[Rfam]
RNA sequence: ACAUAUUCUCAGGGCGGGGUGUAAUUCCCCACCGGCGGUUAUAGCCCGCGAGCGCCUUACUUGUUAAGGGUCAGCAGACACCCGUGAAAUUCGGGGGCCGACAGUUACAGUCUGGAUGGUAGAGAAUGGAU
Numbered sequence: 001a002c003a004u005a006u007u008c009u010c011a012g013g014g015c016g017g018g019g020u021g022u023a024a025u026u027c028c029c030c031a032c033c034g035g036c037g038g039u040u041a042u043a044g045c046c047c048g049c050g051a052g053c054g055c056c057u058u059a060c061u062u063g064u065u066a067a068g069g070g071u072c073a074g075c076a077g078a079c080a081c082c083c084g085u086g087a088a089a090u091u092c093g094g095g096g097g098c099c100g101a102c103a104g105u106u107a108c109a110g111u112c113u114g115g116a117u118g119g120u121a122g123a124g125a126a127u128g129g130a131u
Stems, first nucleotide, its partner, number of pairs: 004128007017029003031111002033100002035049004044098002052075002079096001081095004102114003
The family of this 131-nucleotide sequence from Amylibacter sp. SFDW26 is "FMN riboswitch aptamer (RFN element)". The base pairs follow the family's consensus structure, which is taken from published work. Taxonomically the source falls in Amylibacter (Bacteria, Pseudomonadota, Alphaproteobacteria, Rhodobacterales).